[Rfam]
RNA: Small Cajal body specific RNA 11
RNA sequence: CUGUCUGCCCUGCUUGUGUCCCCCUGUCUGGAGAGAGGUGGCUCGGGGCUGCAGGGUAGACACAGAGAAACCCCGUCCACACAAGGAGGCCUGUCCACAGAAUUGGACAUGUCCUUAAAGGCAGGACGGCACAAC
Numbered sequence: 001c002u003g004u005c006u007g008c009c010c011u012g013c014u015u016g017u018g019u020c021c022c023c024c025u026g027u028c029u030g031g032a033g034a035g036a037g038g039u040g041g042c043u044c045g046g047g048g049c050u051g052c053a054g055g056g057u058a059g060a061c062a063c064a065g066a067g068a069a070a071c072c073c074c075g076u077c078c079a080c081a082c083a084a085g086g087a088g089g090c091c092u093g094u095c096c097a098c099a100g101a102a103u104u105g106g107a108c109a110u111g112u113c114c115u116u117a118a119a120g121g122c123a124g125g126a127c128g129g130c131a132c133a134a135c
Stems, first nucleotide, its partner, number of pairs: 002062007010055002024051001026049001029046001031044002073129005082120001086116004091111001093108005